[Rfam]
RNA sequence: UAGUAGGUAGGAUUGGGGUGCCAGCCGUACCCUAUUCUGAAACCGGCUAUAUGCAGAGAUCAGUACCUGCUGGGUAAAUCUCUAGAUUGGCAAUUCCCGCUUGGUAUGUGGAAAUGAAAUCACGCCGAGGCGGGUGGUUGUAGGACUAGAAUCAUCCGAAGGGAUGAACUCUAAGACCUAACCAUUGAAAGGGAUCAGGUCCGGGAGGGAGCAAUCCUAAGAUGGGACAUUCACGCUUCCUCGUCAACGUGGCGGAUCUUAUAUGCCUUGAAACGGGGUUAUCGGUCUAGUCUGGAACCAGCAGAGCUACUA
Numbered sequence: 001u002a003g004u005a006g007g008u009a010g011g012a013u014u015g016g017g018g019u020g021c022c023a024g025c026c027g028u029a030c031c032c033u034a035u036u037c038u039g040a041a042a043c044c045g046g047c048u049a050u051a052u053g054c055a056g057a058g059a060u061c062a063g064u065a066c067c068u069g070c071u072g073g074g075u076a077a078a079u080c081u082c083u084a085g086a087u088u089g090g091c092a093a094u095u096c097c098c099g100c101u102u103g104g105u106a107u108g109u110g111g112a113a114a115u116g117a118a119a120u121c122a123c124g125c126c127g128a129g130g131c132g133g134g135u136g137g138u139u140g141u142a143g144g145a146c147u148a149g150a151a152u153c154a155u156c157c158g159a160a161g162g163g164a165u166g167a168a169c170u171c172u173a174a175g176a177c178c179u180a181a182c183c184a185u186u187g188a189a190a191g192g193g194a195u196c197a198g199g200u201c202c203g204g205g206a207g208g209g210a211g212c213a214a215u216c217c218u219a220a221g222a223u224g225g226g227a228c229a230u231u232c233a234c235g236c237u238u239c240c241u242c243g244u245c246a247a248c249g250u251g252g253c254g255g256a257u258c259u260u261a262u263a264u265g266c267c268u269u270g271a272a273a274c275g276g277g278g279u280u281a282u283c284g285g286u287c288u289a290g291u292c293u294g295g296a297a298c299c300a301g302c303a304g305a306g307c308u309a310c311u312a
Stems, first nucleotide, its partner, number of pairs: 001312006008305001011061004015033007036057004041052001067304007075296001078293001080290002087285004093280001095278005100270001103267009113257001115255001120252005126243005132237002134234004139229003142179003146175002149172001151170001152167006182225005191218005200209003
RNA: Archaeal signal recognition particle RNA
Organism: Marine Group I thaumarchaeote SCGC AAA799-D07